[Rfam]
Nucleotides: 305
Base pairs, nucleotide, nucleotide: 001040002039003038004023007020028037029036030035044304045303046302047301048300049299051297052296054295057293058292059291060288061287062286064284065283066282067281070279072277074275075274077272078271079270080264082262083261084260085259087257089256092254093253095252096251101249102248103247104246105245107243108239109238112236113235114234115233117230118229119228120227122225123224124223125222127167129165130164131163132162133161136158137157138156139155140154141153142151143150144149168173175220176219177218178217179216186211187210188209193204194203195202
Number, partner (000 for none) and nucleotide at each position: 001040a002039u003038c004023a005000u006000u007020c008000u009000u010000c011000a012000u013000a014000u015000c016000g017000u018000c019000u020007g021000c022000c023004u024000g025000u026000a027000a028037c029036c030035c031000a032000a033000g034000c035030g036029g037028g038003g039002g040001u041000a042000u043000c044304a045303a046302a047301g048300u049299g050000g051297g052296u053000u054295g055000g056000g057293u058292u059291a060288u061287g062286a063000u064284u065283u066282g067281g068000u069000c070279c071000a072277g073000u074275u075274u076000a077272g078271u079270u080264g081000a082262g083261u084260c085259g086000u087257g088000u089256g090000g091000u092254g093253u094000g095252u096251a097000a098000c099000u100000u101249g102248a103247c104246u105245u106000g107243u108239c109238c110000g111000c112236u113235c114234c115233a116000g117230g118229u119228c120227g121000a122225g123224a124223g125222u126000u127167g128000g129165u130164u131163c132162a133161a134000g135000u136158g137157g138156u139155u140154u141153g142151a143150g144149u145000g146000a147000a148000g149144g150143c151142u152000u153141u154140g155139g156138g157137u158136c159000u160000a161133u162132u163131g164130g165129a166000a167127c168173c169000u170000a171000g172000a173168g174000a175220a176219g177218g178217g179216g180000g181000c182000a183000a184000c185000g186211c187210g188209u189000u190000a191000g192000g193204u194203u195202g196000g197000c198000u199000u200000c201000a202195c203194a204193g205000a206000g207000c208000u209188g210187c211186g212000a213000c214000a215000a216179c217178c218177c219176c220175u221000c222125g223124c224123u225122u226000c227120c228119g229118a230117u231000a232000g233115u234114g235113g236112a237000a238109g239108g240000u241000u242000u243107a244000a245105a246104a247103g248102u249101c250000u251096u252095g253093g254092c255000u256089c257087u258000u259085u260084g261083a262082u263000c264080c265000u266000a267000u268000a269000u270079g271078a272077c273000c274075g275074a276000c277072u278000a279070g280000u281067c282066c283065g284064a285000c286062u287061c288060a289000g290000a291059u292058g293057g294000a295054c296052a297051c298000a299049u300048a301047c302046u303045u304044u305000u